Rfam assigns this 758-nucleotide RNA sequence to the family "MISL RNA".
Rfam classes the family as a small RNA.

RNA sequence: AGAUAAUCCCGGGCAACCGGGGAAAAACACACGGCAGCUGGUGCCGCGUUGUUCCUCUACCUUAGCAGCAAUGCGGGUGGCAGGCAGAUGUCACCAGCUCCUCUGGACGGUGUCACGACCGUCUAGCAGCGUGAAGUGGAGCUGCGCGGCAAGGUGCGAUUAGAAACCGCAUCCGAGCCGAGUUAGGCCUGCAGGGAGUUUCGACCUGCCCGCCUACACAGUAACCCAGAGGGUUUCGGUUGCUACUGUGCUAACCAGCACGCAAUCAUGGCAUUUGGCGGGACAACCCCGCCAUAAGGUUCUGGGUCCAAAACACCUAGGGCGUACAAAGAUGACGUGGUUGCGGGGAGUGAGCGCGCCUGGCAAAGCGCGUAAACCUCCUUCUUGGGGCGGUUCUGUAAAACGGGAUCACCCAACUGCGAUACCAAAGCAACCUGAGAGUUAAGAGGUCAGACCCGUAGCACGCGGUAAACGUCCGGUCAAAAGCCGGAGCCGCCCGUGUGAAAAGGGUGCCGACGCGACAGAUCGAAAGAUCGCAGGCGUGUCAGUACCUCGUUCAGCGCGCUCGCUGCCGGCAGGCAGUAGCCGAACUGGGCGAAAAGACCUCACUCGACAGAUCGCGAUCGGAAACGGUCACGACGGUCCCGCCAUGAGACCGAUACCGCUGCCUUCCGCAGCGAGUGGCGUCGGGGAACAUACGGCCCGCGAAAGCGAGUGCGCCCAAUGUAUGUGCCGGGGAAGAGCGAGUGGCGAACGAG
Number, nucleotide and partner (000 for none) at each position: 001a000002g000003a000004u000005a000006a000007u000008c021009c020010c019011g018012g017013g000014c000015a000016a000017c012018c011019g010020g009021g008022g000023a000024a000025a000026a053027a052028c051029a049030c048031a000032c046033g045034g044035c043036a042037g000038c000039u000040g000041g000042u036043g035044c034045c033046g032047c000048g030049u029050u000051g028052u027053u026054c000055c000056u000057c000058u079059a078060c077061c076062u075063u000064a000065g000066c000067a000068g000069c000070a000071a000072u000073g000074c000075g062076g061077g060078u059079g058080g000081c000082a000083g000084g000085c000086a000087g000088a000089u000090g000091u000092c000093a000094c000095c144096a143097g142098c141099u140100c139101c138102u000103c000104u000105g000106g000107a122108c121109g120110g119111u118112g000113u134114c133115a132116c131117g130118a111119c110120c109121g108122u107123c000124u000125a000126g000127c000128a000129g000130c117131g116132u115133g114134a113135a000136g000137u000138g101139g100140a099141g098142c097143u096144g095145c000146g000147c180148g179149g178150c177151a000152a000153g173154g172155u171156g170157c169158g000159a000160u000161u000162a000163g202164a201165a200166a199167c198168c000169g157170c156171a155172u154173c153174c000175g000176a000177g150178c149179c148180g147181a000182g000183u000184u000185a000186g214187g213188c212189c000190u000191g209192c208193a207194g206195g205196g000197a000198g167199u166200u165201u164202c163203g000204a000205c195206c194207u193208g192209c191210c000211c000212g188213c187214c186215u000216a000217c250218a249219c248220a247221g246222u000223a235224a234225c233226c232227c000228a000229g000230a000231g000232g226233g225234u224235u223236u000237c000238g435239g434240u433241u432242g431243c430244u000245a000246c221247u220248g219249u218250g217251c000252u000253a000254a000255c000256c000257a000258g000259c000260a000261c000262g000263c000264a000265a000266u000267c000268a000269u000270g000271g000272c000273a000274u000275u000276u000277g293278g292279c291280g290281g289282g288283a000284c000285a000286a000287c000288c282289c281290c280291g279292c278293c277294a000295u000296a000297a000298g000299g323300u322301u321302c320303u319304g318305g317306g316307u315308c000309c000310a000311a000312a000313a000314c000315a307316c306317c305318u304319a303320g302321g301322g300323c299324g000325u000326a000327c000328a000329a000330a000331g000332a000333u000334g000335a000336c000337g000338u000339g000340g000341u000342u000343g000344c000345g383346g382347g381348g380349a379350g378351u000352g000353a000354g373355c372356g371357c370358g369359c368360c000361u000362g000363g000364c000365a000366a000367a000368g359369c358370g357371c356372g355373u354374a000375a000376a000377c000378c350379u349380c348381c347382u346383u345384c000385u000386u000387g000388g000389g000390g000391c000392g000393g000394u000395u407396c406397u405398g404399u000400a000401a000402a000403a000404c398405g397406g396407g395408a000409u000410c000411a000412c000413c000414c000415a000416a000417c000418u000419g000420c000421g000422a000423u000424a000425c000426c000427a000428a000429a000430g243431c242432a241433a240434c239435c238436u000437g000438a000439g611440a610441g609442u000443u000444a000445a000446g607447a606448g605449g604450u000451c000452a000453g000454a000455c000456c000457c000458g000459u000460a000461g000462c503463a502464c501465g500466c499467g498468g497469u000470a000471a000472a000473c000474g000475u491476c490477c489478g488479g487480u486481c000482a000483a000484a000485a000486g480487c479488c478489g477490g476491a475492g000493c000494c000495g000496c000497c468498c467499g466500u465501g464502u463503g462504a000505a000506a000507a000508g000509g000510g000511u550512g549513c548514c000515g546516a545517c544518g543519c542520g541521a000522c000523a000524g000525a000526u000527c000528g000529a000530a000531a000532g000533a000534u000535c000536g000537c000538a000539g000540g000541c520542g519543u518544g517545u516546c515547a000548g513549u512550a511551c000552c000553u000554c000555g596556u595557u594558c593559a592560g591561c000562g000563c588564g587565c000566u585567c000568g583569c582570u581571g580572c579573c578574g000575g000576c000577a000578g573579g572580c571581a570582g569583u568584a000585g566586c000587c564588g563589a000590a000591c560592u559593g558594g557595g556596c555597g000598a000599a000600a000601a000602g000603a000604c449605c448606u447607c446608a000609c441610u440611c439612g000613a000614c000615a000616g000617a000618u639619c638620g637621c000622g635623a634624u633625c632626g631627g000628a000629a000630a000631c626632g625633g624634u623635c622636a000637c620638g619639a618640c658641g657642g656643u655644c654645c000646c000647g685648c684649c683650a682651u000652g000653a000654g644655a643656c642657c641658g640659a000660u000661a000662c000663c679664g678665c677666u676667g675668c674669c000670u000671u000672c000673c000674g668675c667676a666677g665678c664679g663680a000681g000682u650683g649684g648685c647686g000687u000688c000689g000690g000691g000692g000693a000694a731695c730696a729697u728698a727699c726700g725701g718702c717703c000704c713705g712706c711707g000708a000709a000710a000711g706712c705713g704714a000715g000716u000717g702718c701719g000720c000721c000722c000723a000724a000725u700726g699727u698728a697729u696730g695731u694732g000733c000734c000735g000736g000737g000738g000739a000740a000741g000742a000743g000744c756745g755746a000747g000748u000749g000750g000751c000752g000753a000754a000755c745756g744757a000758g000